[Rfam]
Early nodulin 40: a 169-nucleotide RNA sequence from Hibiscus trionum. Lineage of the source: Eukaryota > Viridiplantae > Magnoliopsida > Malvoideae > Hibiscus. It scores 59 bits against the family's covariance model. The literature on the family includes a 2007 paper in Nucleic Acids Res by Gultyaev and Roussis, "Identification of conserved secondary structures and expansion segments in enod40 RNAs reveals new enod40 homologues in plants".
RNA sequence: AAGAAAAGGAAUCCAUCCACGGGGUCUUCAUAAAACCAUGGGGGAAUGGAGUUUGGGAUUCUUUCACUUGCUCCAAGAACUAAAACUCUUGGCUUGUGCUUAGCCAAUGGCUAAUGCAUAGGCAAACCGGCAAGUCACAGAUCGGCAGUUGGCUCAAUCCUUGAGUCCU
Numbered sequence: 001a002a003g004a005a006a007a008g009g010a011a012u013c014c015a016u017c018c019a020c021g022g023g024g025u026c027u028u029c030a031u032a033a034a035a036c037c038a039u040g041g042g043g044g045a046a047u048g049g050a051g052u053u054u055g056g057g058a059u060u061c062u063u064u065c066a067c068u069u070g071c072u073c074c075a076a077g078a079a080c081u082a083a084a085a086c087u088c089u090u091g092g093c094u095u096g097u098g099c100u101u102a103g104c105c106a107a108u109g110g111c112u113a114a115u116g117c118a119u120a121g122g123c124a125a126a127c128c129g130g131c132a133a134g135u136c137a138c139a140g141a142u143c144g145g146c147a148g149u150u151g152g153c154u155c156a157a158u159c160c161u162u163g164a165g166u167c168c169u
Stems, first nucleotide, its partner, number of pairs: 043074003089126002092123002107115002151167005

The family's RNA type in Rfam is non-coding RNA gene.